mir-584 microRNA precursor family: a 120-nucleotide sequence from Diceros bicornis. The base pairs follow the family's consensus structure, which was predicted with RNAalifold. The match comes from Rfam's covariance-model search (80 bits). For this family Rfam cites "Patterns of known and novel small RNAs in human cervical cancer" (Lui et al., Cancer Res, 2007). Rfam links the family to the GO terms miRNA-mediated post-transcriptional gene silencing and RISC complex.
RNA sequence: UAGGGUGACCAACUGUCCUGGUUUGCUUGGGACUGUCCUGGUUUUAGCACCAAAAAUCCCGCAUUCCGGGAAACCCCUCAGUCCUGGGCAAACCAGAACGGUUGGUCACCCUAUUGCCAC
Numbered sequence: 001u002a003g004g005g006u007g008a009c010c011a012a013c014u015g016u017c018c019u020g021g022u023u024u025g026c027u028u029g030g031g032a033c034u035g036u037c038c039u040g041g042u043u044u045u046a047g048c049a050c051c052a053a054a055a056a057u058c059c060c061g062c063a064u065u066c067c068g069g070g071a072a073a074c075c076c077c078u079c080a081g082u083c084c085u086g087g088g089c090a091a092a093c094c095a096g097a098a099c100g101g102u103u104g105g106u107c108a109c110c111c112u113a114u115u116g117c118c119a120c
Stems, first nucleotide, its partner, number of pairs: 001113015019095017040051003